[Rfam]
RNA: Small nucleolar RNA SNORA9
Organism: Trichechus manatus
RNA sequence: UUGCAAGCCUCCAGCGAGCCUGAGUCUGGAGCAGCCUUGUGCAUUCCUGCCACGCUUGCAAGAGCAGUUUUGAGAUGGUUUGAGGCCUUGCUCCCCACCACCUACAGAGUAGGGUUAUAGACGUUUCAGACAAUU
Numbered sequence: 001u002u003g004c005a006a007g008c009c010u011c012c013a014g015c016g017a018g019c020c021u022g023a024g025u026c027u028g029g030a031g032c033a034g035c036c037u038u039g040u041g042c043a044u045u046c047c048u049g050c051c052a053c054g055c056u057u058g059c060a061a062g063a064g065c066a067g068u069u070u071u072g073a074g075a076u077g078g079u080u081u082g083a084g085g086c087c088u089u090g091c092u093c094c095c096c097a098c099c100a101c102c103u104a105c106a107g108a109g110u111a112g113g114g115u116u117a118u119a120g121a122c123g124u125u126u127c128a129g130a131c132a133a134u135u
Stems, first nucleotide, its partner, number of pairs: 003059006018042002022037001024035002071128005086114006093107001